Shown here is a 491-nucleotide part of an RNA from Coccidioides posadasii, a member of the family "Eukaryotic large subunit ribosomal RNA". Taxonomically the source falls in Coccidioides posadasii (Eukaryota, Opisthokonta, Dikarya, leotiomyceta). A reference for the family is Cannone et al. (2002), "The comparative RNA web (CRW) site: an online database of comparative sequence and structure information for ribosomal, intron, and other RNAs", BMC Bioinformatics. The sequence is in the family's curated seed alignment.

RNA sequence: UAAAACAAUAUAGAUAAGAAAAGUCAGUAAAAUAGAUUCAUAACUUCAGAAAAAGAAUUGGCUCUAAGAGUCAGAUGUGUUGAACCUUAGAAGAAAGUCUCCAGAGCAGAAGAGCACUAGCCAGACAACCAGCAGAUAUCUUCUAGCAUCAGAAUACAGAUACUCUUGACAGACUUCAGCUAUCCAGCACACAAUUAACAACCAACUUAGAACUGGUACAGACAAGAGAAAUCUGACUGUCUAAUUAAAAUAUAGCAUUGCAAUGACCAGAAAGUGAUGUUGACAUAAUGUGAUUUCUGCUCAGUAUUCUGAAUAUCAAAGUGAAGAAAUUCAACCAAGCACAGAUAAACAGUGGAAGUAACUAUAACUCUCUUAAGAUAGCCAAAUACCUCAUCAUUUAAUUAGUGAUGUGCAUGAAUGAAUUAAUAAGAUUCCCACUGUCCCUAUCUACUAUCUAGCAAAACCACAGCCAAGGAAACAAGCUUGACAAA
Numbered sequence: 001u002a003a004a005a006c007a008a009u010a011u012a013g014a015u016a017a018g019a020a021a022a023g024u025c026a027g028u029a030a031a032a033u034a035g036a037u038u039c040a041u042a043a044c045u046u047c048a049g050a051a052a053a054a055g056a057a058u059u060g061g062c063u064c065u066a067a068g069a070g071u072c073a074g075a076u077g078u079g080u081u082g083a084a085c086c087u088u089a090g091a092a093g094a095a096a097g098u099c100u101c102c103a104g105a106g107c108a109g110a111a112g113a114g115c116a117c118u119a120g121c122c123a124g125a126c127a128a129c130c131a132g133c134a135g136a137u138a139u140c141u142u143c144u145a146g147c148a149u150c151a152g153a154a155u156a157c158a159g160a161u162a163c164u165c166u167u168g169a170c171a172g173a174c175u176u177c178a179g180c181u182a183u184c185c186a187g188c189a190c191a192c193a194a195u196u197a198a199c200a201a202c203c204a205a206c207u208u209a210g211a212a213c214u215g216g217u218a219c220a221g222a223c224a225a226g227a228g229a230a231a232u233c234u235g236a237c238u239g240u241c242u243a244a245u246u247a248a249a250a251u252a253u254a255g256c257a258u259u260g261c262a263a264u265g266a267c268c269a270g271a272a273a274g275u276g277a278u279g280u281u282g283a284c285a286u287a288a289u290g291u292g293a294u295u296u297c298u299g300c301u302c303a304g305u306a307u308u309c310u311g312a313a314u315a316u317c318a319a320a321g322u323g324a325a326g327a328a329a330u331u332c333a334a335c336c337a338a339g340c341a342c343a344g345a346u347a348a349a350c351a352g353u354g355g356a357a358g359u360a361a362c363u364a365u366a367a368c369u370c371u372c373u374u375a376a377g378a379u380a381g382c383c384a385a386a387u388a389c390c391u392c393a394u395c396a397u398u399u400a401a402u403u404a405g406u407g408a409u410g411u412g413c414a415u416g417a418a419u420g421a422a423u424u425a426a427u428a429a430g431a432u433u434c435c436c437a438c439u440g441u442c443c444c445u446a447u448c449u450a451c452u453a454u455c456u457a458g459c460a461a462a463a464c465c466a467c468a469g470c471c472a473a474g475g476a477a478a479c480a481a482g483c484u485u486g487a488c489a490a491a
Stems, first nucleotide, its partner, number of pairs: 001457002004454001011450006018443001020441001035059005044049001060214002063211006070202002076191007085172001088169001090167002097161004101152001104149001106147002109144001111142002114139001116137001118135001120133002124129001215219001228435001230433004234428002238252003255291006266278001268276002295422003299353003304350002306346003311342001314341001316339001322333004354372002357369003373377001393409006471486004